[Rfam]
RNA: Small nucleolar RNA SNORA53
Organism: Catagonus wagneri
RNA sequence: AACAUGCUUCCUUAGAUCCACCUUUGUGGAUGCCAAUCUUCGACUGAGUUCUGCUUGUAAAUUUCUGGUUUCUUGUAGUUCCAGUCAAAGAAGCAUCCAGCAACUUUUUUGGUUGUAUAGUCAAAGGUGCUUGAGUCAUUGGCAUGUGAGAGAAAUAUACCUGCAUGUUAGUCUUUGGUUCUGAUAGAAAUGACAUGCAAUUGUGCUGCCAUUUUUUACUAUCAGGACUUGACUGGUUUGCGGACACU
Numbered sequence: 001a002a003c004a005u006g007c008u009u010c011c012u013u014a015g016a017u018c019c020a021c022c023u024u025u026g027u028g029g030a031u032g033c034c035a036a037u038c039u040u041c042g043a044c045u046g047a048g049u050u051c052u053g054c055u056u057g058u059a060a061a062u063u064u065c066u067g068g069u070u071u072c073u074u075g076u077a078g079u080u081c082c083a084g085u086c087a088a089a090g091a092a093g094c095a096u097c098c099a100g101c102a103a104c105u106u107u108u109u110u111g112g113u114u115g116u117a118u119a120g121u122c123a124a125a126g127g128u129g130c131u132u133g134a135g136u137c138a139u140u141g142g143c144a145u146g147u148g149a150g151a152g153a154a155a156u157a158u159a160c161c162u163g164c165a166u167g168u169u170a171g172u173c174u175u176u177g178g179u180u181c182u183g184a185u186a187g188a189a190a191u192g193a194c195a196u197g198c199a200a201u202u203g204u205g206c207u208g209c210c211a212u213u214u215u216u217u218a219c220u221a222u223c224a225g226g227a228c229u230u231g232a233c234u235g236g237u238u239u240g241c242g243g244a245c246a247c248u
Stems, first nucleotide, its partner, number of pairs: 002147007011135005019129008027099006037091004043085004048081001051078004057072001059071004100116006161243005168236001170234004180226008191218003195214001197209003
Dot-bracket structure: .(((((((..(((((...((((((((((((((....((((..((((.(..((((..(.((((.....)))))..))))..)))))..))))..))))))((((((.....)))))).....)))))))).))))).....))))))).............(((((..(.((((......((((((((...(((.(.(((.......)))....).)))))))))))....)))).)..))))).....